This 74-nucleotide sequence from Paramixta manurensis belongs to the Rfam family "PyrD leader". Lineage of the source: Bacteria > Pseudomonadati > Pseudomonadota > Enterobacterales > Paramixta. The match comes from Rfam's covariance-model search (64 bits).
RNA sequence: CUACCUUUUCUUUCUUUUAUACCGGAUAAUACCGCCCCGGUUUGACUAUCGGGAAUUCAGGAGAGUGCAUGUAC
Numbered sequence: 001c002u003a004c005c006u007u008u009u010c011u012u013u014c015u016u017u018u019a020u021a022c023c024g025g026a027u028a029a030u031a032c033c034g035c036c037c038c039g040g041u042u043u044g045a046c047u048a049u050c051g052g053g054a055a056u057u058c059a060g061g062a063g064a065g066u067g068c069a070u071g072u073a074c
Base pairs, nucleotide, nucleotide: 036053037052038051039050040049041048
It is annotated as a cis-regulatory leader.